[Rfam]
RNA sequence: GGAGGGAUGGCCGAGUGGUUAAGGCGAUGCACUUAAGUCUUACACAAGUGGUGUAAGCGAUGCAUUUCACGUAAGUGAUCGAGGGUUCGAACCCCUCUCCCUCCA
Numbered sequence: 001g002g003a004g005g006g007a008u009g010g011c012c013g014a015g016u017g018g019u020u021a022a023g024g025c026g027a028u029g030c031a032c033u034u035a036a037g038u039c040u041u042a043c044a045c046a047a048g049u050g051g052u053g054u055a056a057g058c059g060a061u062g063c064a065u066u067u068c069a070c071g072u073a074a075g076u077g078a079u080c081g082a083g084g085g086u087u088c089g090a091a092c093c094c095c096u097c098u099c100c101c102u103c104c105a
Stems, first nucleotide, its partner, number of pairs: 001104007010025003027065005081097005
RNA: tRNA
Organism: Rasamsonia emersonii